[Rfam]
RNA sequence: AGCCACUGAUGAGGUUGAUUCUGCCAAAUGAGUUACUGUGAUAUUACCCUUUCCGUUCAUUUCUGAGGUU
Number, nucleotide and partner (000 for none) at each position: 001a070002g069003c068004c067005a000006c000007u000008g000009a000010u000011g000012a000013g000014g000015u000016u000017g000018a000019u000020u000021c000022u000023g000024c000025c000026a000027a000028a000029u000030g000031a000032g000033u000034u000035a000036c000037u000038g000039u000040g000041a000042u000043a000044u000045u000046a000047c000048c000049c000050u000051u000052u000053c000054c000055g000056u000057u000058c000059a000060u000061u000062u000063c000064u000065g000066a000067g004068g003069u002070u001

The family of this 70-nucleotide RNA sequence from Oenanthe oenanthe is "Small nucleolar RNA SNORD47".
The source organism's lineage runs through Eukaryota, Eumetazoa, Teleostomi, Australaves and Oenanthe.
The literature on the family includes a 2002 paper in Mol Cell Biol by Galardi et al., "Purified box C/D snoRNPs are able to reproduce site-specific 2'-O-methylation of target RNA in vitro".
The family has 20 seed sequences and 755 matches in Rfam 15.1.
The family's consensus secondary structure was predicted with ILM.
Its family is annotated with nucleolus and RNA processing in the Gene Ontology.